[Rfam]
RNA sequence: UGAGUGUCUUAGACGGUCGCGCCACCACAAAACUUUAGCAGUUUUAGGUGUCGAGGAACGUCCGGGCUCCACAGAGCACGAUGGUGGCUAACGGCCACCCGGGGUGACCCGCGAGAUAGUGCCACAGAAAACAGACCGCCAGCCUUUGCUGGUAAGGGUGAAAAGGUGGUGUAAGAGACCACCAGGUUCGCAGGUGACUGUGAAUGCUUGGUAAACCUCAUCGGGAGCAAGACCAAAUAAGUGGACGCAUAGGCUGCUCGUCCAGUCCACGGGUAGGUUGCUUGAGGCCAAUGGCAACAUUGGUCCUAGAUAAAUGGCCGUCACCGCUUAGGCGGGACAGAACCCGGCGUAUCGAGGCACUCAACUU
Numbered sequence: 001u002g003a004g005u006g007u008c009u010u011a012g013a014c015g016g017u018c019g020c021g022c023c024a025c026c027a028c029a030a031a032a033c034u035u036u037a038g039c040a041g042u043u044u045u046a047g048g049u050g051u052c053g054a055g056g057a058a059c060g061u062c063c064g065g066g067c068u069c070c071a072c073a074g075a076g077c078a079c080g081a082u083g084g085u086g087g088c089u090a091a092c093g094g095c096c097a098c099c100c101g102g103g104g105u106g107a108c109c110c111g112c113g114a115g116a117u118a119g120u121g122c123c124a125c126a127g128a129a130a131a132c133a134g135a136c137c138g139c140c141a142g143c144c145u146u147u148g149c150u151g152g153u154a155a156g157g158g159u160g161a162a163a164a165g166g167u168g169g170u171g172u173a174a175g176a177g178a179c180c181a182c183c184a185g186g187u188u189c190g191c192a193g194g195u196g197a198c199u200g201u202g203a204a205u206g207c208u209u210g211g212u213a214a215a216c217c218u219c220a221u222c223g224g225g226a227g228c229a230a231g232a233c234c235a236a237a238u239a240a241g242u243g244g245a246c247g248c249a250u251a252g253g254c255u256g257c258u259c260g261u262c263c264a265g266u267c268c269a270c271g272g273g274u275a276g277g278u279u280g281c282u283u284g285a286g287g288c289c290a291a292u293g294g295c296a297a298c299a300u301u302g303g304u305c306c307u308a309g310a311u312a313a314a315u316g317g318c319c320g321u322c323a324c325c326g327c328u329u330a331g332g333c334g335g336g337a338c339a340g341a342a343c344c345c346g347g348c349g350u351a352u353c354g355a356g357g358c359a360c361u362c363a364a365c366u367u
Base pairs, nucleotide, nucleotide: 001363002362003361004360005359006358007357008356009355010354011352012322013321014320015319016318017317018316020053021052023050024049025048026047058350059349060348062347063346064345065344066343067227068226069225070224074259075258076257077256079223080222081221082220083219084098085097086096087095088094099113100111101110102109103108114218115217119216120215121212122211123210136157137156138153139152140151141150142149143148165183166182167181168180169179170178185207186205187204188203189202190201191200192199193198231279232278233277234276241270242269243268244267245266246265250264252262253261254260286305287304288303289302290301291300292299293298
Notes
A member of the RNA family "Bacterial RNase P class A" from Boudabousia tangfeifanii, 367 nucleotides long. Ribonuclease P (RNase P) is a ubiquitous endoribonuclease, found in archaea, bacteria and eukarya as well as chloroplasts and mitochondria. Its best characterised activity is the generation of mature 5'-ends of tRNAs by cleaving the 5'-leader elements of precursor-tRNAs. Cellular RNase Ps are ribonucleoproteins. RNA from bacterial RNase Ps retains its catalytic activity in the absence of the protein subunit, i.e. it is a ribozyme. By type it is a ribozyme. The base pairs follow the family's consensus structure, which is taken from published work.